[Rfam]
RNA sequence: CCGUCUCAAUGUUCACCGCCUGAUCAGCGGUGCCCAGAGCAGCGAGACGGACACAAGUUAAUAUCGUCAACCCACUGGGACGGUUGGCCAGUUAAGAAGUGAGGAUUCAUUCUUAUGGCCAAUUAUUAUGGGAUGUCCUGCGUGGAUUCUCA
Numbered sequence: 001c002c003g004u005c006u007c008a009a010u011g012u013u014c015a016c017c018g019c020c021u022g023a024u025c026a027g028c029g030g031u032g033c034c035c036a037g038a039g040c041a042g043c044g045a046g047a048c049g050g051a052c053a054c055a056a057g058u059u060a061a062u063a064u065c066g067u068c069a070a071c072c073c074a075c076u077g078g079g080a081c082g083g084u085u086g087g088c089c090a091g092u093u094a095a096g097a098a099g100u101g102a103g104g105a106u107u108c109a110u111u112c113u114u115a116u117g118g119c120c121a122a123u124u125a126u127u128a129u130g131g132g133a134u135g136u137c138c139u140g141c142g143u144g145g146a147u148u149c150u151c152a
Stems, first nucleotide, its partner, number of pairs: 001050005007044001010041004014032005033079005066147003070143002085121005098111005